RNA sequence: AAGGAAAAGGAGAAAGCCAUAGCAGAAGUGCUCAUGGCACAGCCAUGUCAGAUUCCAAUGAAUCUGAAUUCUGCU
Numbered sequence: 001a002a003g004g005a006a007a008a009g010g011a012g013a014a015a016g017c018c019a020u021a022g023c024a025g026a027a028g029u030g031c032u033c034a035u036g037g038c039a040c041a042g043c044c045a046u047g048u049c050a051g052a053u054u055c056c057a058a059u060g061a062a063u064c065u066g067a068a069u070u071c072u073g074c075u
Base pairs, nucleotide, nucleotide: 016043017042021075022074023073024072025071026070027069028040029039030038049066050065051064052063053062054061055060

The record is a 75-nucleotide RNA from Crocodylus porosus, which matches "Mammalian CPEB3 ribozyme" in Rfam.
Rfam 15.1 lists 5,706 matches to the family in 197 species.
The organism belongs to Crocodylus, within Eukaryota.
The mammalian CPEB3 ribozyme is a self cleaving RNA located in the second intron of the CPEB3 gene which belongs to a family of genes regulating messenger RNA polyadenylation. This ribozyme is highly conserved and found only in mammals.
The base pairs follow the family's consensus structure, which is taken from published work.